[Rfam]
RNA sequence: GGUCAUGAGCGUCAGCAGACAAGGCCCUGGCCGGCUGACCGGCAACCCUCCGACGCGGUGGGGUGCUCCAGGUGACGACCCGGCGGAGCCGAAGACGGCUCGGCAAGCGCGAGCU
Numbered sequence: 001g002g003u004c005a006u007g008a009g010c011g012u013c014a015g016c017a018g019a020c021a022a023g024g025c026c027c028u029g030g031c032c033g034g035c036u037g038a039c040c041g042g043c044a045a046c047c048c049u050c051c052g053a054c055g056c057g058g059u060g061g062g063g064u065g066c067u068c069c070a071g072g073u074g075a076c077g078a079c080c081c082g083g084c085g086g087a088g089c090c091g092a093a094g095a096c097g098g099c100u101c102g103g104c105a106a107g108c109g110c111g112a113g114c115u
Stems, first nucleotide, its partner, number of pairs: 001080004009040001011039006023032002041067003046063003050058002083104002086101006

Rfam assigns this 115-nucleotide sequence from Actinacidiphila reveromycinica to the family "SAM (S-adenosyl methionine) riboswitch aptamer". SAM-IV is a mRNA element that regulates gene expression via direct sensing of S-adenosylmethionine (SAM or AdoMet). SAM-IV riboswitches share conserved nucleotide positions with the previously described SAM-I riboswitches sequence analysis and molecular recognition experiments suggest that SAM-I and SAM-IV riboswitches share similar ligand binding sites, but have different scaffolds. Pairs were carried over by alignment from the consensus structure, which is taken from published work. Its family is annotated with regulation of gene expression and S-adenosylmethionine metabolic process in the Gene Ontology. Rfam 15.1 lists 2,360 matches to the family in 1,305 species. Taxonomically the source falls in Actinacidiphila (Bacteria, Actinomycetes, Kitasatosporales, Streptomycetaceae). Its Rfam clan is "SAM clan".